[Rfam]
mir-317 microRNA precursor family: an 82-nucleotide sequence from Cimex lectularius.
RNA sequence: UUGGGCUAUGACAGGGUACCACCCUGAGUUCUCUGUGAGUACGAGUGAACACAGCUGGUGGUAUCUCAGUCAUCGCCAACAA
Numbered sequence: 001u002u003g004g005g006c007u008a009u010g011a012c013a014g015g016g017u018a019c020c021a022c023c024c025u026g027a028g029u030u031c032u033c034u035g036u037g038a039g040u041a042c043g044a045g046u047g048a049a050c051a052c053a054g055c056u057g058g059u060g061g062u063a064u065c066u067c068a069g070u071c072a073u074c075g076c077c078a079a080c081a082a
Base pairs, nucleotide, nucleotide: 008073009072010071011070012069014067015065016064018062019061021059022058023057024054025053026052028050030048031047
Dot-bracket structure: .......(((((.(((.((.((((((.(.((...............)).).)))..))).)).)).).))))).........
NCBI's taxonomy places the organism under Eukaryota, Bilateria, Arthropoda, Panheteroptera, Cimex. The literature on the family includes a 2007 paper in Genome Res by Stark et al., "Systematic discovery and characterization of fly microRNAs using 12 Drosophila genomes".